[Rfam]
RNA: PyrR binding site
Organism: Paucilactobacillus vaccinostercus
RNA sequence: GUAACCUUUAAGAUAGUCCAGCGAGGCUAAGAAGGAUUCGGAGAAUAUUUAGGAAAUAUUUUGAAGACCUCUUAGUCGCAGUACGAGAUUAAGAGGUCUUUUGUA
Numbered sequence: 001g002u003a004a005c006c007u008u009u010a011a012g013a014u015a016g017u018c019c020a021g022c023g024a025g026g027c028u029a030a031g032a033a034g035g036a037u038u039c040g041g042a043g044a045a046u047a048u049u050u051a052g053g054a055a056a057u058a059u060u061u062u063g064a065a066g067a068c069c070u071c072u073u074a075g076u077c078g079c080a081g082u083a084c085g086a087g088a089u090u091a092a093g094a095g096g097u098c099u100u101u102u103g104u105a
Base pairs, nucleotide, nucleotide: 003037005035006034007033008032009031014029015028016027017026018025043061044060045059046058047057048056049055050054064100065099066098067097068096069095070094071093072092073091074090075089076088077087